[Rfam]
Nucleotides: 077
Base pairs, nucleotide, nucleotide: 001077002076003075004074005073006072009032010031011030012029037069038068039067040066041065042064043063044062
Number, partner (000 for none) and nucleotide at each position: 001077g002076c003075a004074c005073u006072g007000g008000a009032u010031g011030a012029a013000g014000g015000u016000u017000u018000c019000a020000c021000c022000g023000u024000u025000a026000u027000g028000c029012u030011u031010c032009a033000g034000u035000g036000c037069u038068g039067c040066g041065u042064c043063c044062u045000g046000a047000a048000g049000g050000a051000g052000a053000g054000c055000g056000a057000c058000g059000g060000c061000a062044g063043g064042g065041a066040u067039g068038c069037a070000g071000a072006c073005a074004g075003u076002g077001c
This 77-nucleotide RNA sequence from Desertifilum tharense belongs to the Rfam family "CyVA-1 RNA". Rfam classes the family as a small RNA. Cyanobacteria, Acidobacteria (1 example), Verrucomicrobia (1 example).